[Rfam]
RNA sequence: GGGCAAUGAUGAUUACCUGAGGAAGUCAUGCACCACUCUGAUGAAUCUAUGCUGAUAAAUUUCUCAUACCCAAUCCUUCUGAGCCU
Numbered sequence: 001g002g003g004c005a006a007u008g009a010u011g012a013u014u015a016c017c018u019g020a021g022g023a024a025g026u027c028a029u030g031c032a033c034c035a036c037u038c039u040g041a042u043g044a045a046u047c048u049a050u051g052c053u054g055a056u057a058a059a060u061u062u063c064u065c066a067u068a069c070c071c072a073a074u075c076c077u078u079c080u081g082a083g084c085c086u
Base pairs, nucleotide, nucleotide: 001086002085003084004083
RNA: Small nucleolar RNA Z221/R21b
Organism: Malus domestica